This 580-nucleotide part of an RNA from Picrophilus oshimae belongs to the Rfam family "Archaeal large subunit ribosomal RNA". The sequence is in the family's curated seed alignment.

[Rfam]
RNA sequence: CUCCCACGUGAAAGCGAAGUCCCCGUGGAGCUUUACUGCAGCCUGUAGCUGUGACGCGAUUCUCAAUGCGUAGGGUAGGAAGGAGCCAUCGAAGUUCCGGUUGUGGCCGGAAUGGAGGCGACGAUGAAACACUUCCCUUUGGGAGUUGCGUCACUAACCUUGCAAAAGGGACAACUAUUGGUGGGCAGUUUGGGUGGGGCGCCACGCCUCUAACAAUCCAACAGAGGCCUCCAAAGGUCAGCUCAGGAGGGUCAGAAAUCCUCCGUAGAGUAUAAAGGCAAAAGCUGGCUUGACAGUGUUCCAGACAAUAAGGAACGCUGAUGCGAAAGCAGGGCUUAGCGAACCACCUUGUCUCCCUCUUCAUGAGGGCAGGUGAUAAGAGAGAAGUUACCCCAGGGAUAACUGAGUUGUCCUCGGCAAGAGUACACAUCGACCCGAGGGUUUGCUACUUCGAUGUCGUCUGUUCCUAUCCUGGCGCUGCAUAAGACGCCAAGGGUGGGGCUGUUCGCCCAUUAAAAGGGAUCCUGAGAUGGGUUCACUACGUCGCGAGACAGUAGGGUUGCUUCUCCGUGGGAGUGCU
Numbered sequence: 001c002u003c004c005c006a007c008g009u010g011a012a013a014g015c016g017a018a019g020u021c022c023c024c025g026u027g028g029a030g031c032u033u034u035a036c037u038g039c040a041g042c043c044u045g046u047a048g049c050u051g052u053g054a055c056g057c058g059a060u061u062c063u064c065a066a067u068g069c070g071u072a073g074g075g076u077a078g079g080a081a082g083g084a085g086c087c088a089u090c091g092a093a094g095u096u097c098c099g100g101u102u103g104u105g106g107c108c109g110g111a112a113u114g115g116a117g118g119c120g121a122c123g124a125u126g127a128a129a130c131a132c133u134u135c136c137c138u139u140u141g142g143g144a145g146u147u148g149c150g151u152c153a154c155u156a157a158c159c160u161u162g163c164a165a166a167a168g169g170g171a172c173a174a175c176u177a178u179u180g181g182u183g184g185g186c187a188g189u190u191u192g193g194g195u196g197g198g199g200c201g202c203c204a205c206g207c208c209u210c211u212a213a214c215a216a217u218c219c220a221a222c223a224g225a226g227g228c229c230u231c232c233a234a235a236g237g238u239c240a241g242c243u244c245a246g247g248a249g250g251g252u253c254a255g256a257a258a259u260c261c262u263c264c265g266u267a268g269a270g271u272a273u274a275a276a277g278g279c280a281a282a283a284g285c286u287g288g289c290u291u292g293a294c295a296g297u298g299u300u301c302c303a304g305a306c307a308a309u310a311a312g313g314a315a316c317g318c319u320g321a322u323g324c325g326a327a328a329g330c331a332g333g334g335c336u337u338a339g340c341g342a343a344c345c346a347c348c349u350u351g352u353c354u355c356c357c358u359c360u361u362c363a364u365g366a367g368g369g370c371a372g373g374u375g376a377u378a379a380g381a382g383a384g385a386a387g388u389u390a391c392c393c394c395a396g397g398g399a400u401a402a403c404u405g406a407g408u409u410g411u412c413c414u415c416g417g418c419a420a421g422a423g424u425a426c427a428c429a430u431c432g433a434c435c436c437g438a439g440g441g442u443u444u445g446c447u448a449c450u451u452c453g454a455u456g457u458c459g460u461c462u463g464u465u466c467c468u469a470u471c472c473u474g475g476c477g478c479u480g481c482a483u484a485a486g487a488c489g490c491c492a493a494g495g496g497u498g499g500g501g502c503u504g505u506u507c508g509c510c511c512a513u514u515a516a517a518a519g520g521g522a523u524c525c526u527g528a529g530a531u532g533g534g535u536u537c538a539c540u541a542c543g544u545c546g547c548g549a550g551a552c553a554g555u556a557g558g559g560u561u562g563c564u565u566c567u568c569c570g571u572g573g574g575a576g577u578g579c580u
Stems, first nucleotide, its partner, number of pairs: 001576008010568002014563002022397002025394001027393002029389005035189004042181002045178004051154016068137001078136005085119003097110005158169004192205001193203003206228006231334002237289006243269002246264006270279002294320009322331001324329001345375005351370001355369004406447003410444001411441007421431002458533001459531004463525001464522005471496002475490003479486001499511004539557004543552003
NCBI's taxonomy places the organism under Archaea, Thermoplasmata, Picrophilaceae, Picrophilus, Picrophilus oshimae.